[Rfam]
RNA: Glycine riboswitch aptamer
RNA sequence: GGCGCUCUUGCGGGAGAGAUCAGGUUUCGGCCUGACGCCGAAGGCGCAACCGCCCCGGAAACGCUCAGGCAAACGGACCGCAGGGCAAGG
Numbered sequence: 001g002g003c004g005c006u007c008u009u010g011c012g013g014g015a016g017a018g019a020u021c022a023g024g025u026u027u028c029g030g031c032c033u034g035a036c037g038c039c040g041a042a043g044g045c046g047c048a049a050c051c052g053c054c055c056c057g058g059a060a061a062c063g064c065u066c067a068g069g070c071a072a073a074c075g076g077a078c079c080g081c082a083g084g085g086c087a088a089g090g
Stems, first nucleotide, its partner, number of pairs: 006085008020035004037070003040066002044064003050058002